Source information: Rfam assigns this 110-nucleotide RNA sequence from Sinocyclocheilus anshuiensis to the family "Vault RNA". The family's consensus secondary structure is taken from published work. It is annotated as a non-coding RNA gene. NCBI's taxonomy places the organism under Eukaryota, Metazoa, Craniata, Otomorpha, Sinocyclocheilus. A search with the family's covariance model found it, with a score of 63 bits.
RNA sequence: CCGUUGGUUUAGCUCAGUGGUUACUUCCGAUUCACCAGAAGAUCACCAUUUCAUGGCUGCCGGGAAACCGGCGACCGGAAAUCGAACCACGGGCGCUGUCCAACGCUUUU
Numbered sequence: 001c002c003g004u005u006g007g008u009u010u011a012g013c014u015c016a017g018u019g020g021u022u023a024c025u026u027c028c029g030a031u032u033c034a035c036c037a038g039a040a041g042a043u044c045a046c047c048a049u050u051u052c053a054u055g056g057c058u059g060c061c062g063g064g065a066a067a068c069c070g071g072c073g074a075c076c077g078g079a080a081a082u083c084g085a086a087c088c089a090c091g092g093g094c095g096c097u098g099u100c101c102a103a104c105g106c107u108u109u110u
Stems, first nucleotide, its partner, number of pairs: 002105006012094004017090004025080005